[Rfam]
RNA sequence: GUGGCUGUAGCUCAGUUGGCAGAGCACCGGGUUGUGGUCCCGGGUGUCGCGGGUUCAAAUCCCGUCAGUCACC
Numbered sequence: 001g002u003g004g005c006u007g008u009a010g011c012u013c014a015g016u017u018g019g020c021a022g023a024g025c026a027c028c029g030g031g032u033u034g035u036g037g038u039c040c041c042g043g044g045u046g047u048c049g050c051g052g053g054u055u056c057a058a059a060u061c062c063c064g065u066c067a068g069u070c071a072c073c
Base pairs, nucleotide, nucleotide: 001072002071003070004069005068006067007066010025011024012023013022027043028042029041030040031039049065050064051063052062053061
Rfam assigns this 73-nucleotide sequence from Plantactinospora soyae to the family "tRNA". Rfam links the family to the GO term triplet codon-amino acid adaptor activity. Taxonomically the source falls in Plantactinospora (Bacteria, Bacillati, Actinomycetes, Micromonosporales). It scores 64 bits against the family's covariance model.